[Rfam]
A member of the RNA family "t44 RNA" from Spiribacter salinus, 88 nucleotides long. NCBI's taxonomy places the organism under Bacteria, Pseudomonadota, Gammaproteobacteria, Ectothiorhodospiraceae, Spiribacter salinus. The match comes from Rfam's covariance-model search (72 bits).
RNA sequence: CAAUGCAAGAGAAAACUUCACACAUGCACCGACACGACUGGCGGGGUGCCCCAAGGGGUUGUCAGUUGCGGGUGCAUGGAGGCUUAAC
Numbered sequence: 001c002a003a004u005g006c007a008a009g010a011g012a013a014a015a016c017u018u019c020a021c022a023c024a025u026g027c028a029c030c031g032a033c034a035c036g037a038c039u040g041g042c043g044g045g046g047u048g049c050c051c052c053a054a055g056g057g058g059u060u061g062u063c064a065g066u067u068g069c070g071g072g073u074g075c076a077u078g079g080a081g082g083c084u085u086a087a088c
Stems, first nucleotide, its partner, number of pairs: 023078008035068009048059004